[Rfam]
RNA sequence: UCGCAGGAGCCUCCCGGGCUAGUCUGAUAACUAAGGUACUUGAGGAACUAAGCCCCAAAGCUCCUGCUAGAUUAUUUUUGCCGUUUGUGUUGCAGAUUUGCCUUAUUCCUUAGGCUUUUCUGUGUCAAAAAAGCGGCUAUAUCU
Numbered sequence: 001u002c003g004c005a006g007g008a009g010c011c012u013c014c015c016g017g018g019c020u021a022g023u024c025u026g027a028u029a030a031c032u033a034a035g036g037u038a039c040u041u042g043a044g045g046a047a048c049u050a051a052g053c054c055c056c057a058a059a060g061c062u063c064c065u066g067c068u069a070g071a072u073u074a075u076u077u078u079u080g081c082c083g084u085u086u087g088u089g090u091u092g093c094a095g096a097u098u099u100g101c102c103u104u105a106u107u108c109c110u111u112a113g114g115c116u117u118u119u120c121u122g123u124g125u126c127a128a129a130a131a132a133g134c135g136g137c138u139a140u141a142u143c144u
Base pairs, nucleotide, nucleotide: 003067004066005065006064007063008062009061010060016055017054018053019052020051021049022048023046024045025044080137081136082135083134084133085132086131088127089126091124092123093122094121095120096119100115101114102113